[Rfam]
RNA: Nuclear RNase P
Organism: Mucor lusitanicus
RNA sequence: AGAGGUGGCAAGCUUAUGUAUACGGGCAAACAUACUAAAAGACUCUGUUCUUUAAUCUUACCCGUGGGAAGGUCUGAGGAAAACCGCUAAAUGUCUUUGCUGGAUAACCUGUGAAAAUGGGGGCAGUGCUACCAGAAAAUAUAUCAUCUUGGACCGUUAGUACCGUUGAAGGAGCUUGCAAGAGUUUCUGAUGGGUUGGUUCGAGUUUGUUUACUGUAAUGGCCUGUGGGUGGUAAUGCUAUGAAGUGCAAUACAUGAGACCGGUUAUACUGGUAACUCAAUUCAGACUACUCUGUCUCCUCU
Numbered sequence: 001a002g003a004g005g006u007g008g009c010a011a012g013c014u015u016a017u018g019u020a021u022a023c024g025g026g027c028a029a030a031c032a033u034a035c036u037a038a039a040a041g042a043c044u045c046u047g048u049u050c051u052u053u054a055a056u057c058u059u060a061c062c063c064g065u066g067g068g069a070a071g072g073u074c075u076g077a078g079g080a081a082a083a084c085c086g087c088u089a090a091a092u093g094u095c096u097u098u099g100c101u102g103g104a105u106a107a108c109c110u111g112u113g114a115a116a117a118u119g120g121g122g123g124c125a126g127u128g129c130u131a132c133c134a135g136a137a138a139a140u141a142u143a144u145c146a147u148c149u150u151g152g153a154c155c156g157u158u159a160g161u162a163c164c165g166u167u168g169a170a171g172g173a174g175c176u177u178g179c180a181a182g183a184g185u186u187u188c189u190g191a192u193g194g195g196u197u198g199g200u201u202c203g204a205g206u207u208u209g210u211u212u213a214c215u216g217u218a219a220u221g222g223c224c225u226g227u228g229g230g231u232g233g234u235a236a237u238g239c240u241a242u243g244a245a246g247u248g249c250a251a252u253a254c255a256u257g258a259g260a261c262c263g264g265u266u267a268u269a270c271u272g273g274u275a276a277c278u279c280a281a282u283u284c285a286g287a288c289u290a291c292u293c294u295g296u297c298u299c300c301u302c303u
Stems, first nucleotide, its partner, number of pairs: 001303004008296003013259007022065005038053004042048001074286005082231001084229002092106005108121005123227004128223003144213001146211001260274005